[Rfam]
RNA: flg-Rhizobiales RNA
Organism: Bradyrhizobium sediminis
RNA sequence: CGAACCGCGGCUUGGGAGAGCCUUCGGUUCGGAAUGAUCCGCGAACGGGCUUGGGAGAGCCCCUCUCGGAUCGAUCAGGGGAGAACCACCGAUGGAGAAUACGCUUCUCAUCGGACUAUCGCGGCAGAUGGUGCUGG
Numbered sequence: 001c002g003a004a005c006c007g008c009g010g011c012u013u014g015g016g017a018g019a020g021c022c023u024u025c026g027g028u029u030c031g032g033a034a035u036g037a038u039c040c041g042c043g044a045a046c047g048g049g050c051u052u053g054g055g056a057g058a059g060c061c062c063c064u065c066u067c068g069g070a071u072c073g074a075u076c077a078g079g080g081g082a083g084a085a086c087c088a089c090c091g092a093u094g095g096a097g098a099a100u101a102c103g104c105u106u107c108u109c110a111u112c113g114g115a116c117u118a119u120c121g122c123g124g125c126a127g128a129u130g131g132u133g134c135u136g137g
Stems, first nucleotide, its partner, number of pairs: 001031007009022005036072006048061005089114005095109005